[Rfam]
This 88-nucleotide RNA belongs to the Rfam family "GA-cis RNA". It is annotated as a small RNA.
RNA sequence: GGAAAAAGGAAACAAAAUGAGCGAAGUUUAUUUUUCAGGAUGUUUCCAAUGAAUUGCCACUAACCGAAGAGAGGGGGCACUACAUAUU
Numbered sequence: 001g002g003a004a005a006a007a008g009g010a011a012a013c014a015a016a017a018u019g020a021g022c023g024a025a026g027u028u029u030a031u032u033u034u035u036c037a038g039g040a041u042g043u044u045u046c047c048a049a050u051g052a053a054u055u056g057c058c059a060c061u062a063a064c065c066g067a068a069g070a071g072a073g074g075g076g077g078c079a080c081u082a083c084a085u086a087u088u
Base pairs, nucleotide, nucleotide: 008047009046010045011044012043013042016032017031018030019029020028021027056078057077058076060074061073065069